RNA: mir-9279 microRNA precursor family
Organism: Cnephaeus nilssonii
RNA sequence: CCGGGUGAGGCCACGCGCCCCUGGGCCUGGGUGAGGCCACACGCCCCUAGGUCCGGGUGAGGCCACGCGCCCUU
Numbered sequence: 001c002c003g004g005g006u007g008a009g010g011c012c013a014c015g016c017g018c019c020c021c022u023g024g025g026c027c028u029g030g031g032u033g034a035g036g037c038c039a040c041a042c043g044c045c046c047c048u049a050g051g052u053c054c055g056g057g058u059g060a061g062g063c064c065a066c067g068c069g070c071c072c073u074u
Stems, first nucleotide, its partner, number of pairs: 003072005009064004016059005023054009033045001036042001